[Rfam]
RNA sequence: AUUAGAUUAAGAGGCAAUACAGAUCAAAAGAAAUGAUGAUUUUAGGUGAAUGAGUUGCGCAACAAAAGAGAAAGACUGAAAUAUUGAUAAUCGUUGAGGUAGCGUAUUGAAAUAAUGAAUAUUCUAGAAUGGUGCGUCCGAGUAGACUCGAACUACCGACCCCCACCA
Numbered sequence: 001a002u003u004a005g006a007u008u009a010a011g012a013g014g015c016a017a018u019a020c021a022g023a024u025c026a027a028a029a030g031a032a033a034u035g036a037u038g039a040u041u042u043u044a045g046g047u048g049a050a051u052g053a054g055u056u057g058c059g060c061a062a063c064a065a066a067a068g069a070g071a072a073a074g075a076c077u078g079a080a081a082u083a084u085u086g087a088u089a090a091u092c093g094u095u096g097a098g099g100u101a102g103c104g105u106a107u108u109g110a111a112a113u114a115a116u117g118a119a120u121a122u123u124c125u126a127g128a129a130u131g132g133u134g135c136g137u138c139c140g141a142g143u144a145g146a147c148u149c150g151a152a153c154u155a156c157c158g159a160c161c162c163c164c165a166c167c168a
Stems, first nucleotide, its partner, number of pairs: 024049003030043004130165003134161001139158002142156004
A member of the RNA family "Bacterial antisense RNA HPnc0260", 168 nucleotides long.
A reference for the family is Sharma et al. (2010), "The primary transcriptome of the major human pathogen Helicobacter pylori", Nature.
The family's consensus secondary structure was predicted with CMfinder.